RNA sequence: UAAUUUUGCACUCGAAUCCGAGAAUCGGAAUUCAUACAUAAAAAUCAUUAAACAAAUAUUGGAAUG
Numbered sequence: 001u002a003a004u005u006u007u008g009c010a011c012u013c014g015a016a017u018c019c020g021a022g023a024a025u026c027g028g029a030a031u032u033c034a035u036a037c038a039u040a041a042a043a044a045u046c047a048u049u050a051a052a053c054a055a056a057u058a059u060u061g062g063a064a065u066g
Stems, first nucleotide, its partner, number of pairs: 014032002017029003
Shown here is a 66-nucleotide RNA sequence, a member of the family "S15-Flavobacteria ribosomal protein leader". A reference for the family is Eckert and Weinberg (2020), "Discovery of 20 novel ribosomal leader candidates in bacteria and archaea", BMC Microbiol. The family is grouped with related families in Rfam's "Ribosomal Protein S15 Leader clan". Pairs were carried over by alignment from the consensus structure, which is taken from published work. The family's RNA type in Rfam is cis-regulatory leader.